[Rfam]
RNA sequence: GACUAAGCGUACACGGUGGAUGCCUAGGCAGUUGGAGGCGAUGAAGGACGUACUAACUUGCGAUAAGCCAUGAUAAGCCAGUAAGAGGCACUUGAGUCAUGGAUUUCCGAAUGGGGAAACCCACUCUGUUUACAGAGUAUCCGGCACUGAAUCAAUAGGUGCCAGGAAGCGAACCCGGAGAACUGAAACAUCUAAGUACCCGGAGGAAAAGAAAUCAACCGAGAUUUCCCCAGUAGCGGCGAGCGAACGGGAAGCAGCCCUUAAGCUUAACUUGUGCUAACAGAAUCCGAUGGGAAGCGGAGCCACAGACGGUGAGAGCCCGGUAUGUGAAGGUGCAUGAUAAGUGAAAUCGAGUAGGUCGGGACACGUGAUAUCCUGACUGAAUAUGGGGGGACCAUCCUCCAAGGCUAAAUACUCCCAACUGACCGAUAGUGAACCAGUACCGUGAGGGAAAGGCGAAAAGAACCCCGGCGAGGGGAGUGAAACAGAACCUGAAACCGUGUACGUACAAG
Numbered sequence: 001g002a003c004u005a006a007g008c009g010u011a012c013a014c015g016g017u018g019g020a021u022g023c024c025u026a027g028g029c030a031g032u033u034g035g036a037g038g039c040g041a042u043g044a045a046g047g048a049c050g051u052a053c054u055a056a057c058u059u060g061c062g063a064u065a066a067g068c069c070a071u072g073a074u075a076a077g078c079c080a081g082u083a084a085g086a087g088g089c090a091c092u093u094g095a096g097u098c099a100u101g102g103a104u105u106u107c108c109g110a111a112u113g114g115g116g117a118a119a120c121c122c123a124c125u126c127u128g129u130u131u132a133c134a135g136a137g138u139a140u141c142c143g144g145c146a147c148u149g150a151a152u153c154a155a156u157a158g159g160u161g162c163c164a165g166g167a168a169g170c171g172a173a174c175c176c177g178g179a180g181a182a183c184u185g186a187a188a189c190a191u192c193u194a195a196g197u198a199c200c201c202g203g204a205g206g207a208a209a210a211g212a213a214a215u216c217a218a219c220c221g222a223g224a225u226u227u228c229c230c231c232a233g234u235a236g237c238g239g240c241g242a243g244c245g246a247a248c249g250g251g252a253a254g255c256a257g258c259c260c261u262u263a264a265g266c267u268u269a270a271c272u273u274g275u276g277c278u279a280a281c282a283g284a285a286u287c288c289g290a291u292g293g294g295a296a297g298c299g300g301a302g303c304c305a306c307a308g309a310c311g312g313u314g315a316g317a318g319c320c321c322g323g324u325a326u327g328u329g330a331a332g333g334u335g336c337a338u339g340a341u342a343a344g345u346g347a348a349a350u351c352g353a354g355u356a357g358g359u360c361g362g363g364a365c366a367c368g369u370g371a372u373a374u375c376c377u378g379a380c381u382g383a384a385u386a387u388g389g390g391g392g393g394a395c396c397a398u399c400c401u402c403c404a405a406g407g408c409u410a411a412a413u414a415c416u417c418c419c420a421a422c423u424g425a426c427c428g429a430u431a432g433u434g435a436a437c438c439a440g441u442a443c444c445g446u447g448a449g450g451g452a453a454a455g456g457c458g459a460a461a462a463g464a465a466c467c468c469c470g471g472c473g474a475g476g477g478g479a480g481u482g483a484a485a486c487a488g489a490a491c492c493u494g495a496a497a498c499c500g501u502g503u504a505c506g507u508a509c510a511a512g
Base pairs, nucleotide, nucleotide: 007507008506009505010504011503012502013501014500015499016498022492023456024455027427028426029424030423031422032421033420034419035418036416037415038170039169046108047107048106049062050061051060068102069101070100071099072098073097074096077089078088079087113122114121115120123138124137125136126135127134128133140167141166142165143163144162145161146160147159148158174205175203176202177201178200185192186191215222216221225412226253227252228251229250230249236244237243256409257408258407259406266344267343268342269341271339273337274336275335276334277333278332280328281327282326286301287300288299289298304308310322311321312320357381358380359379360378361377362376363375364374388403389402390401391400392399443450444449466478467477468476469475
RNA: Bacterial large subunit ribosomal RNA, nucleotides 9 to 520